[Rfam]
Nucleotides: 056
Base pairs, nucleotide, nucleotide: 002013003012004011025048026047027046028045029044030043031042032041033040034039
Number, partner (000 for none) and nucleotide at each position: 001000u002013g003012g004011u005000a006000g007000a008000u009000g010000c011004a012003c013002c014000c015000u016000g017000a018000u019000u020000c021000c022000g023000a024000g025048g026047c027046u028045c029044c030043g031042g032041a033040g034039g035000a036000u037000u038000a039034c040033c041032u042031c043030c044029g045028g046027a047026g048025u049000c050000u051000u052000u053000u054000c055000u056000u